[Rfam]
The family of this 82-nucleotide RNA sequence from Homo sapiens is "mir-1276 microRNA precursor family".
The base pairs follow the family's consensus structure, which was predicted with RNAalifold.
RNA sequence: CCCCAGCUAGGUAAAGAGCCCUGUGGAGACACCUGGAUUCAGAGAACAUGUCUCCACUGAGCACUUGGGCCUUGAUGGCGGC
Dot-bracket structure: (((((...((((.(((.((.(.(((((((((((((....))).)....))))))))).).)).)))..))))...))).)).